[Rfam]
The family of this 63-nucleotide RNA sequence from Nematostella vectensis is "mir-9412 microRNA precursor family". Lineage of the source: Eukaryota > Opisthokonta > Eumetazoa > Edwardsiidae > Nematostella. The base pairs follow the family's consensus structure, which was predicted with RNAalifold. A search with the family's covariance model found it, with a score of 71 bits.

RNA sequence: GAUGAAUGCUAAAGACUGGAAGACAUUUUAAAAAAAACCAUGUCUUGGAGAGAACAGUAGGGA
Numbered sequence: 001g002a003u004g005a006a007u008g009c010u011a012a013a014g015a016c017u018g019g020a021a022g023a024c025a026u027u028u029u030a031a032a033a034a035a036a037a038c039c040a041u042g043u044c045u046u047g048g049a050g051a052g053a054a055c056a057g058u059a060g061g062g063a
Stems, first nucleotide, its partner, number of pairs: 007059004016050002020046007
Dot-bracket structure: ......((((.....((..(((((((.............)))))))..)).....))))....